Small nucleolar RNA SNORD81: a 78-nucleotide sequence from Galemys pyrenaicus.
The family's consensus secondary structure was predicted with PFOLD.
The literature on the family includes a 1998 paper in Mol Cell Biol by Smith and Steitz, "Classification of gas5 as a multi-small-nucleolar-RNA (snoRNA) host gene and a member of the 5'-terminal oligopyrimidine gene family reveals common features of snoRNA host genes".
It scores 63 bits against the family's covariance model.
Taxonomically the source falls in Galemys (Eukaryota, Eumetazoa, Chordata, Euteleostomi).
Clan: SNORD26 clan.
[Rfam]
RNA sequence: AGCAAUACAUGCUGAUUUCCUCUCAUCUUGAACACACUCACUAAUUAUUUGAUGACAACCAAAAUAUUUGAUGUUCUU
Numbered sequence: 001a002g003c004a005a006u007a008c009a010u011g012c013u014g015a016u017u018u019c020c021u022c023u024c025a026u027c028u029u030g031a032a033c034a035c036a037c038u039c040a041c042u043a044a045u046u047a048u049u050u051g052a053u054g055a056c057a058a059c060c061a062a063a064a065u066a067u068u069u070g071a072u073g074u075u076c077u078u
Stems, first nucleotide, its partner, number of pairs: 001078002004075004